Shown here is a 110-nucleotide RNA sequence, a member of the family "Actinobacteria sRNA Ms_IGR-7".
RNA sequence: UAGAAAUAAUCUUCCUCUUACAUGGUUGAAGCUUUGAGAACUUCAACCAUGUAGGAGGAAGAUUAUUUCUACUGUGUCACCGCAAAAUAACUUGCUAGUCCUUGGAGGAG
Numbered sequence: 001u002a003g004a005a006a007u008a009a010u011c012u013u014c015c016u017c018u019u020a021c022a023u024g025g026u027u028g029a030a031g032c033u034u035u036g037a038g039a040a041c042u043u044c045a046a047c048c049a050u051g052u053a054g055g056a057g058g059a060a061g062a063u064u065a066u067u068u069c070u071a072c073u074g075u076g077u078c079a080c081c082g083c084a085a086a087a088u089a090a091c092u093u094g095c096u097a098g099u100c101c102u103u104g105g106a107g108g109a110g
Stems, first nucleotide, its partner, number of pairs: 002070012015058002017055005023049004028044001030042002099109004

The base pairs follow the family's consensus structure.